[Rfam]
RNA sequence: AAAGUGUCUUAUGCAACAGCCAUGGACUGGUUCAUUGCGGUCUGUUUUGCCUUU
Dot-bracket structure: (((..(.(..(.((.((.((.(((((....))))).)).))..)))..).))))

Source information
Shown here is a 54-nucleotide RNA from Leptobrachium leishanense, a member of the family "Editing element of GABA-3 exon 9". Rfam 15.1 lists 4,208 matches to the family in 654 species. Rfam classes the family as a cis-regulatory element.